RNA sequence: UGGCGGGGGAGCACUACAACCGGAGGAGCCUGCGGUUUAAUUGGACUCAACGCCGGACAUCUCACCAGCUCCGACUACAGUGAUGACGAUCAGGUUGAUGACCUUAUCACGACGCUGUAGAGAGGAGGUGCAUGGCCGCCGUCAGCUCGUACCGUGAGGCGUCCUGUUAAGUCAGGCAACGAGCGAGACCCGCACUUCUAAUUGCCAGCAGCAGUUCGACUGGCUGGGUACAUUAGAAGGACUGCCGCUGCUAAGCGGAAGAAGGACGGGCAACGGUAGGUCAGUUAUGCCCCGAAUGACUGGGCUUACCGCGGGCUAUAUGGUCCGAGAGAAUGGGUUGCUUUCUCAAAAAGAACGCUAUUUCCCUAACUCCCUGAUCGUAGUCGGAUGAGGGCUAAACCUGCCCCCCUAGAACUGGAUCCGGUAGUUAUCCCAUUUCAAUAGAGUGCGGUGAAUACGUCCCUGCUCCUUGCACACACCGCCCGUCAAAGCACCCGAGUGAGGUCCGGAUGAGGCCACCACACGGUGGUCGAAUCUGGGCUUCGCAAGGGGGCUUAAGUCGUAACAAGGUAGCCGUAGGGGAAUCUGCGGCUGGAUCAC
Numbered sequence: 001u002g003g004c005g006g007g008g009g010a011g012c013a014c015u016a017c018a019a020c021c022g023g024a025g026g027a028g029c030c031u032g033c034g035g036u037u038u039a040a041u042u043g044g045a046c047u048c049a050a051c052g053c054c055g056g057a058c059a060u061c062u063c064a065c066c067a068g069c070u071c072c073g074a075c076u077a078c079a080g081u082g083a084u085g086a087c088g089a090u091c092a093g094g095u096u097g098a099u100g101a102c103c104u105u106a107u108c109a110c111g112a113c114g115c116u117g118u119a120g121a122g123a124g125g126a127g128g129u130g131c132a133u134g135g136c137c138g139c140c141g142u143c144a145g146c147u148c149g150u151a152c153c154g155u156g157a158g159g160c161g162u163c164c165u166g167u168u169a170a171g172u173c174a175g176g177c178a179a180c181g182a183g184c185g186a187g188a189c190c191c192g193c194a195c196u197u198c199u200a201a202u203u204g205c206c207a208g209c210a211g212c213a214g215u216u217c218g219a220c221u222g223g224c225u226g227g228g229u230a231c232a233u234u235a236g237a238a239g240g241a242c243u244g245c246c247g248c249u250g251c252u253a254a255g256c257g258g259a260a261g262a263a264g265g266a267c268g269g270g271c272a273a274c275g276g277u278a279g280g281u282c283a284g285u286u287a288u289g290c291c292c293c294g295a296a297u298g299a300c301u302g303g304g305c306u307u308a309c310c311g312c313g314g315g316c317u318a319u320a321u322g323g324u325c326c327g328a329g330a331g332a333a334u335g336g337g338u339u340g341c342u343u344u345c346u347c348a349a350a351a352a353g354a355a356c357g358c359u360a361u362u363u364c365c366c367u368a369a370c371u372c373c374c375u376g377a378u379c380g381u382a383g384u385c386g387g388a389u390g391a392g393g394g395c396u397a398a399a400c401c402u403g404c405c406c407c408c409c410u411a412g413a414a415c416u417g418g419a420u421c422c423g424g425u426a427g428u429u430a431u432c433c434c435a436u437u438u439c440a441a442u443a444g445a446g447u448g449c450g451g452u453g454a455a456u457a458c459g460u461c462c463c464u465g466c467u468c469c470u471u472g473c474a475c476a477c478a479c480c481g482c483c484c485g486u487c488a489a490a491g492c493a494c495c496c497g498a499g500u501g502a503g504g505u506c507c508g509g510a511u512g513a514g515g516c517c518a519c520c521a522c523a524c525g526g527u528g529g530u531c532g533a534a535u536c537u538g539g540g541c542u543u544c545g546c547a548a549g550g551g552g553g554c555u556u557a558a559g560u561c562g563u564a565a566c567a568a569g570g571u572a573g574c575c576g577u578a579g580g581g582g583a584a585u586c587u588g589c590g591g592c593u594g595g596a597u598c599a600c
Stems, first nucleotide, its partner, number of pairs: 001476002003473003007470007016460002020424005025319001027317010041056004065303004070299002075120004080115002088108003092104003124293002127291004133287002135281003138277004145184006152159002163176004190269003195239007205228002209226003212222004242261002245258005323379001326376002329373001335365003340358002344354003388410001390408001392406004430452003434448004479569001481566001484562002487559001489556004494551003499546013514531007571594010
Dot-bracket structure: (((((.(((((((..((..((((((.((((((((((....((((........))))........((((.((...((((.((......(((.(((.......))).))).....)).))))...((.((((..(((((((((...((((((.((....))...((((......))))..)))))).....(((..(((((((...((..(((((((...)))).)))))....)))))))..((.(((((....))))).)).....)))....)))).)))....))))))))....))))))....)))))))))).)...(..((.(.....(((..((..(((.....)))..))....))).......).))..)........(.(.((((.......)))).).).........))))).....(((.((((.......)))).)))......))...)))))))))).))..(.(..((.(.((((.(((..(((((((((((((..(((((((....)))))))..)))))))))))))..))).))))..).))...)..).((((((((((....))))))))))......
Archaeal small subunit ribosomal RNA: a 600-nucleotide part of an RNA. For this family Rfam cites "Crystal structure of the ribosome at 5.5 A resolution" (Yusupov et al., Science, 2001). The family is grouped with related families in Rfam's "SSU clan". Its family is annotated with structural constituent of ribosome and ribosome in the Gene Ontology. Pairs were carried over by alignment from the consensus structure, which is taken from published work. Rfam's curators put it in the seed alignment.